[Rfam]
RNA sequence: AACAAUAGAAUUGGUUUCUCAAGGGUGGUCGGCUCACUCCCGCAGCAAAGGGGGUGGUGCCGUAUGACAGUGUUCGAAUCAUUAAUGUUUGCAAUCGCCUUCACGGGUUUAAUCGUAAGCAUUCUGUCAUUUAACCAAAAAAAAUAAUCCACCCUUGAGUUGACGGCUCUGGUGGAUUAUUGUGUUCAUCCAAUAGCUGACCCCCUUAAAGGGACCGUUCUAUUGUGUUGGCCGGGCAUGCUGCGAACAUGGCCG
Numbered sequence: 001a002a003c004a005a006u007a008g009a010a011u012u013g014g015u016u017u018c019u020c021a022a023g024g025g026u027g028g029u030c031g032g033c034u035c036a037c038u039c040c041c042g043c044a045g046c047a048a049a050g051g052g053g054g055u056g057g058u059g060c061c062g063u064a065u066g067a068c069a070g071u072g073u074u075c076g077a078a079u080c081a082u083u084a085a086u087g088u089u090u091g092c093a094a095u096c097g098c099c100u101u102c103a104c105g106g107g108u109u110u111a112a113u114c115g116u117a118a119g120c121a122u123u124c125u126g127u128c129a130u131u132u133a134a135c136c137a138a139a140a141a142a143a144a145u146a147a148u149c150c151a152c153c154c155u156u157g158a159g160u161u162g163a164c165g166g167c168u169c170u171g172g173u174g175g176a177u178u179a180u181u182g183u184g185u186u187c188a189u190c191c192a193a194u195a196g197c198u199g200a201c202c203c204c205c206u207u208a209a210a211g212g213g214a215c216c217g218u219u220c221u222a223u224u225g226u227g228u229u230g231g232c233c234g235g236g237c238a239u240g241c242u243g244c245g246a247a248c249a250u251g252g253c254c255g
Stems, first nucleotide, its partner, number of pairs: 002226004007221003011217001016200002018159008027149003034057008066128005072122001079094001104119001170188002202213003233255003237251004242246001

The family of this 255-nucleotide RNA from Bacillus sp. B-jedd is "BsrG". Lineage of the source: Bacteria > Bacillota > Bacilli > Caryophanales > Bacillus. The family has 6 seed sequences and 614 matches in Rfam 15.1. The literature on the family includes a 2013 paper in Nucleic Acids Res by Jahn and Brantl, "One antitoxin--two functions: SR4 controls toxin mRNA decay and translation". Rfam's curators write: bsrE, bsrG and bsrH pair through intermolecular interactions with antisense sRNAs. They form type I toxin/antitoxin system that includes an mRNA encoding for a short, toxic peptide (bsrE, bsrG and bsrH) and an antitoxin that is comprised of an antisense RNA. bsrG encodes a 39-amino-acid toxin, and the 180 nucleotide antisense sRNA called SR4 acts as the antitoxin (they overlap by 123 nucleotides). SR4 interaction with the 3'UTR of bsrG RNA promotes bsrG degradation and inhibits its translation. The base pairs follow the family's consensus structure, which was predicted with WAR. The match comes from Rfam's covariance-model search (112 bits).